[Rfam]
RNA sequence: CUGGCUUCAGUGCUGGGGAGCGCACCCCGGGGUGGGCCUCCACUCCGGCCCCUCUUGGGUCCCGCACUCUUGCUACGGGGUCG
Number, nucleotide and partner (000 for none) at each position: 001c000002u000003g082004g081005c080006u000007u079008c078009a000010g076011u000012g073013c072014u000015g070016g069017g068018g067019a000020g065021c064022g063023c000024a000025c000026c059027c058028c057029g056030g055031g054032g000033u000034g051035g050036g049037c048038c047039u000040c000041c000042a000043c000044u000045c000046c000047g038048g037049c036050c035051c034052c000053u000054c031055u030056u029057g028058g027059g026060u000061c000062c000063c022064g021065c020066a000067c018068u017069c016070u015071u000072g013073c012074u000075a000076c010077g000078g008079g007080g005081u004082c003083g000

Rfam assigns this 83-nucleotide RNA sequence from Chrysochloris asiatica to the family "mir-1343 microRNA precursor family". The source organism's lineage runs through Eukaryota, Craniata, Sarcopterygii, Theria and Chrysochloris. The family's consensus secondary structure was predicted with RNAalifold. A search with the family's covariance model found it, with a score of 59 bits. Rfam links the family to the GO terms miRNA-mediated post-transcriptional gene silencing and RISC complex.